A member of the RNA family "MIR4371 microRNA precursor family" from Glycine soja, 158 nucleotides long. The family's consensus secondary structure was predicted with RNAalifold.

Nucleotides: 158
Stems, first nucleotide, its partner, number of pairs: 003154010014143001016141004021136001023134001025132013039118003043114004048109005054103002057100001071086004
Number, partner (000 for none) and nucleotide at each position: 001000u002000c003154g004153u005152u006151g007150a008149g009148u010147g011146a012145u013000a014143a015000c016141g017140u018139g019138a020000a021136a022000g023134a024000c025132g026131a027130a028129g029128u030127g031126u032125u033124a034123c035122a036121u037120c038000u039118u040117c041116a042000u043114g044113u045112c046111u047000u048109a049108u050107c051106a052105c053000u054103g055102a056000c057100a058000c059000u060000u061000c062000a063000u064000c065000g066000u067000c068000a069000c070000a071086u072085u073084a074083u075000c076000a077000c078000c079000u080000u081000u082000a083074a084073u085072a086071a087000c088000g089000u090000g091000a092000c093000a094000a095000u096000g097000a098000c099000a100057u101000a102055u103054c104000a105052g106051u107050g108049a109048u110000u111046a112045g113044g114043c115000u116041u117040g118039a119000u120037g121036a122035u123034g124033u125032g126031a127030c128029a129028c130027u131026u132025u133000a134023u135000a136021u137000g138019u139018c140017a141016c142000a143014u144000c145012a146011u147010c148009a149008c150007u151006u152005a153004a154003c155000a156000c157000a158000a